The record is a 91-nucleotide RNA from Catellatospora methionotrophica, which matches "Glycine riboswitch aptamer" in Rfam.
The pairing is the family consensus, mapped onto this sequence.
Rfam links the family to the GO term glycine biosynthetic process.
The organism belongs to Catellatospora, within Bacteria.
[Rfam]
RNA sequence: AGAACCACGGCGGGAGAGGCCCGGUGCGUCCGGGCCGCCGAAGGAGCAACUCUCCCCGGAAUCUCUCAGGCCCACGUACCGCCGUGGCGAG
Numbered sequence: 001a002g003a004a005c006c007a008c009g010g011c012g013g014g015a016g017a018g019g020c021c022c023g024g025u026g027c028g029u030c031c032g033g034g035c036c037g038c039c040g041a042a043g044g045a046g047c048a049a050c051u052c053u054c055c056c057c058g059g060a061a062u063c064u065c066u067c068a069g070g071c072c073c074a075c076g077u078a079c080c081g082c083c084g085u086g087g088c089g090a091g
Base pairs, nucleotide, nucleotide: 006086007085008084009083010082011081012080013079019035020034021033022032037071038070039069040067041066044065045064046063050058